[Rfam]
RNA: c-di-GMP-I riboswitch aptamer
Organism: Lawsonibacter hominis
RNA sequence: ACCGUGCAAAGGCAAACCGUCCGAAAGGGCGGGACGCAAAGCCAGGAGGCUACAGCGGGCGACCGCCACGCCGGUCCGGCUGCCACU
Numbered sequence: 001a002c003c004g005u006g007c008a009a010a011g012g013c014a015a016a017c018c019g020u021c022c023g024a025a026a027g028g029g030c031g032g033g034a035c036g037c038a039a040a041g042c043c044a045g046g047a048g049g050c051u052a053c054a055g056c057g058g059g060c061g062a063c064c065g066c067c068a069c070g071c072c073g074g075u076c077c078g079g080c081u082g083c084c085a086c087u
Stems, first nucleotide, its partner, number of pairs: 012037002017032006040081004045077003048072003055066004